[Rfam]
RNA sequence: AAAGAGAAUAUUGUCAUGCCGCAGACAGAGGGUGCAAUGAACCGAAUGGUAAGUUGCUUAAUUUCCUUCCGAGGUGUGUACUAUUAAUAGAUUAGCUCUGUUGAUAUGUGCCCUCGCGAACGUCUGCGAGGGCAUUUUCAAUUUACAUU
Numbered sequence: 001a002a003a004g005a006g007a008a009u010a011u012u013g014u015c016a017u018g019c020c021g022c023a024g025a026c027a028g029a030g031g032g033u034g035c036a037a038u039g040a041a042c043c044g045a046a047u048g049g050u051a052a053g054u055u056g057c058u059u060a061a062u063u064u065c066c067u068u069c070c071g072a073g074g075u076g077u078g079u080a081c082u083a084u085u086a087a088u089a090g091a092u093u094a095g096c097u098c099u100g101u102u103g104a105u106a107u108g109u110g111c112c113c114u115c116g117c118g119a120a121c122g123u124c125u126g127c128g129a130g131g132g133c134a135u136u137u138u139c140a141a142u143u144u145a146c147a148u149u
Stems, first nucleotide, its partner, number of pairs: 028069005034057005109134010

The record is a 149-nucleotide RNA from Brevibacillus laterosporus, which matches "Ribosomal protein L10 leader" in Rfam. For this family Rfam cites "Diverse mechanisms for regulating ribosomal protein synthesis in Escherichia coli" (Zengel and Lindahl, Prog Nucleic Acid Res Mol Biol, 1994). It is annotated as a cis-regulatory leader.